Shown here is an 84-nucleotide sequence from Paenibacillus tyrphae, a member of the family "c-di-GMP-I riboswitch aptamer". It scores 79 bits against the family's covariance model. GEMM was predicted in a large-scale screen for bacterial structured RNA regulatory elements. Gene Ontology term of the family: cyclic-di-GMP binding.
[Rfam]
RNA sequence: UCACAGACAUGGCAAACUUGGCGAAAGUCAAGGACGCAAAGCUAUAGGGACUAAGGUGUAACACGAUGUCAGCCAGCUGCCGAA
Numbered sequence: 001u002c003a004c005a006g007a008c009a010u011g012g013c014a015a016a017c018u019u020g021g022c023g024a025a026a027g028u029c030a031a032g033g034a035c036g037c038a039a040a041g042c043u044a045u046a047g048g049g050a051c052u053a054a055g056g057u058g059u060a061a062c063a064c065g066a067u068g069u070c071a072g073c074c075a076g077c078u079g080c081c082g083a084a
Stems, first nucleotide, its partner, number of pairs: 012037002017032006040078004047074002049070003056064003
The organism belongs to Paenibacillus, within Bacteria.